Source information
The family of this 74-nucleotide sequence from Plasmodium yoelii is "tRNA". By type it is a transfer RNA. The family has 954 seed sequences and 5,335,975 matches in Rfam 15.1.
RNA sequence: GGGCCGGUAGUUCAGUUGGAUAGAAUGCCCGACUACGGAUCGGGAGGUCGUGGGUUCGACUCCUGCCCGGCCUA
Numbered sequence: 001g002g003g004c005c006g007g008u009a010g011u012u013c014a015g016u017u018g019g020a021u022a023g024a025a026u027g028c029c030c031g032a033c034u035a036c037g038g039a040u041c042g043g044g045a046g047g048u049c050g051u052g053g054g055u056u057c058g059a060c061u062c063c064u065g066c067c068c069g070g071c072c073u074a
Stems, first nucleotide, its partner, number of pairs: 001073007010026004028044005050066005
The base pairs follow the family's consensus structure, which is taken from published work. Lineage of the source: Eukaryota > Haemosporida > Plasmodium > Vinckeia > Plasmodium yoelii. It scores 60 bits against the family's covariance model.